Rfam assigns this 120-nucleotide RNA sequence from Plantimonas leprariae to the family "Alphaproteobacterial ar14".
It scores 83 bits against the family's covariance model.
For this family Rfam cites "A survey of sRNA families in alpha-proteobacteria" (del Val et al., RNA Biol, 2012).
RNA sequence: AAGGUUCGUGUCGACCCAUCCUCCUCCCAGGGUCGGCAUGGAACGACCGGCGGCAUCCUCCUCCCAGCCGUCAGGUCCAAGCACGACGCCCGCCGGUUCCUCCCCCGGUGGGCGUUUUGC
Numbered sequence: 001a002a003g004g005u006u007c008g009u010g011u012c013g014a015c016c017c018a019u020c021c022u023c024c025u026c027c028c029a030g031g032g033u034c035g036g037c038a039u040g041g042a043a044c045g046a047c048c049g050g051c052g053g054c055a056u057c058c059u060c061c062u063c064c065c066a067g068c069c070g071u072c073a074g075g076u077c078c079a080a081g082c083a084c085g086a087c088g089c090c091c092g093c094c095g096g097u098u099c100c101u102c103c104c105c106c107g108g109u110g111g112g113c114g115u116u117u118u119g120c
Base pairs, nucleotide, nucleotide: 007040008039009038011036012035013034014033015032016031017030045077046076047075048074049072050071051070052069053068054067086115087114088113089112090111091110092109093108094107095106096105
Its family is annotated with biological process involved in symbiotic interaction in the Gene Ontology. From the family's description: Smr14C2 was renamed NfeR1 (Nodule Formation Efficiency RNA) highly expressed in salt stress and during the symbiotic interaction on legume roots. The source organism's lineage runs through Bacteria, Pseudomonadota, Hyphomicrobiales, Aurantimonadaceae and Plantimonas. Rfam classes the family as a small RNA.